[Rfam]
The family of this 87-nucleotide sequence from Pseudofrankia asymbiotica is "ZMP/ZTP riboswitch aptamer (pfl RNA motif)".
RNA sequence: GAGCCCAGUCGUGACUGGCGUGCAAGGGUGGAUUCAACCACCGGGGAGCGACCGAACGGCACGGCACCGUGCGCCUGGGUGCCACCG
Numbered sequence: 001g002a003g004c005c006c007a008g009u010c011g012u013g014a015c016u017g018g019c020g021u022g023c024a025a026g027g028g029u030g031g032a033u034u035c036a037a038c039c040a041c042c043g044g045g046g047a048g049c050g051a052c053c054g055a056a057c058g059g060c061a062c063g064g065c066a067c068c069g070u071g072c073g074c075c076u077g078g079g080u081g082c083c084a085c086c087g
Stems, first nucleotide, its partner, number of pairs: 003057001006054001008052005015045002017075005028041004064082005